[Rfam]
RNA: TPP riboswitch aptamer (THI element)
Organism: Mangrovibacterium marinum
Nucleotides: 099
Stems, first nucleotide, its partner, number of pairs: 006087005011048004016042001017034005054079003060073004
Number, partner (000 for none) and nucleotide at each position: 001000u002000a003000u004000u005000a006087c007086g008085c009084a010083a011048u012047g013046g014045g015000g016042u017034g018033u019032c020031c021030g022000g023000c024000u025000a026000c027000c028000g029000u030021c031020g032019g033018a034017c035000u036000g037000a038000g039000a040000u041000c042016a043000u044000a045014c046013c047012c048011a049000a050000a051000g052000a053000a054079c055078c056077u057000g058000a059000u060073c061072c062071g063070g064000u065000u066000a067000a068000u069000a070063c071062c072061g073060g074000c075000g076000g077056a078055g079054g080000g081000a082000u083010u084009u085008g086007u087006g088000u089000a090000g091000c092000u093000a094000c095000u096000g097000u098000c099000c